Shown here is a 62-nucleotide RNA from Propithecus coquereli, a member of the family "U7 small nuclear RNA".
[Rfam]
RNA sequence: CAGUGUUCCAGCUCUUUUAGAAUUUGUCUAGCAGGUUUUCCUGUUUUCACCGGAAGACCUCA
Numbered sequence: 001c002a003g004u005g006u007u008c009c010a011g012c013u014c015u016u017u018u019a020g021a022a023u024u025u026g027u028c029u030a031g032c033a034g035g036u037u038u039u040c041c042u043g044u045u046u047u048c049a050c051c052g053g054a055a056g057a058c059c060u061c062a
Stems, first nucleotide, its partner, number of pairs: 034059008043050002
The literature on the family includes a 1994 paper in Nucleic Acids Res by Spycher et al., "3' end processing of mouse histone pre-mRNA: evidence for additional base-pairing between U7 snRNA and pre-mRNA".